mir-374 microRNA precursor family: a 71-nucleotide RNA from Octodon degus.
Taxonomically the source falls in Octodon (Eukaryota, Craniata, Vertebrata, Amniota).
For this family Rfam cites "The expression profile of microRNAs in mouse embryos" (Mineno et al., Nucleic Acids Res, 2006).
The family's consensus secondary structure was predicted with PFOLD.
Its family is annotated with RISC complex and miRNA-mediated post-transcriptional gene silencing in the Gene Ontology.

RNA sequence: ACAUUGGCCAUUAUAAUAUAACCUGAUAAGUGUUACAACUCUUACCAGAUUGUAUUAUAGUUGUCUGUGUA
Numbered sequence: 001a002c003a004u005u006g007g008c009c010a011u012u013a014u015a016a017u018a019u020a021a022c023c024u025g026a027u028a029a030g031u032g033u034u035a036c037a038a039c040u041c042u043u044a045c046c047a048g049a050u051u052g053u054a055u056u057a058u059a060g061u062u063g064u065c066u067g068u069g070u071a
Base pairs, nucleotide, nucleotide: 013058014057015056016055017054018053019052020051021050023048024047025046027044028043029042030041032039033038